[Rfam]
RNA sequence: UAUUGAUAAUAGCACACUUGCCGAAAGGUAGGGCCGCAAAGCUAUGGGUCUAAAGAAAUUCAUUUUCAAUGAUUGCCAGGUUGCCAAA
Dot-bracket structure: ...........((...((((((....))))))...))..((((.((((((....((((.....))))...)))..)))))))......

The record is an 88-nucleotide sequence from Clostridium beijerinckii, which matches "c-di-GMP-I riboswitch aptamer" in Rfam.
Its family is annotated with cyclic-di-GMP binding in the Gene Ontology.
Rfam's curators put it in the seed alignment.